The family of this 158-nucleotide RNA from Dickeya dianthicola is "EFASI RNA".
It is one of the family's seed sequences.
By type it is a small RNA.
RNA sequence: UCGACACAGUAUCGAUGGCGACGUCACUAACACUGACGUGUGGAAGCAGUCUGAUUCAUUAACGAGUCAGCCCGGCAUAAGCCGCGAACGGGUGAAAUCCCCGGGGUGCUUCGCAAGAACUCAACUUAUUCGCCACCCCGAUGCACAGAUACUUGUCG
Number, nucleotide and partner (000 for none) at each position: 001u000002c158003g157004a156005c155006a000007c000008a153009g152010u151011a150012u149013c148014g000015a000016u000017g000018g000019c042020g041021a039022c038023g037024u036025c035026a034027c000028u000029a000030a000031c000032a000033c000034u026035g025036a024037c023038g022039u021040g000041u020042g019043g112044a111045a110046g109047c000048a000049g000050u000051c070052u069053g068054a067055u066056u065057c064058a000059u000060u000061a000062a000063c000064g057065a056066g055067u054068c053069a052070g051071c000072c000073c000074g000075g000076c000077a000078u000079a000080a000081g000082c000083c000084g000085c000086g000087a000088a000089c103090g102091g101092g100093u000094g000095a000096a000097a000098u000099c000100c092101c091102c090103g089104g000105g000106g000107u000108g000109c046110u045111u044112c043113g000114c000115a000116a000117g000118a000119a000120c000121u000122c000123a000124a000125c000126u000127u000128a000129u000130u000131c000132g000133c000134c000135a000136c000137c000138c000139c000140g000141a000142u000143g000144c000145a000146c000147a000148g013149a012150u011151a010152c009153u008154u000155g005156u004157c003158g002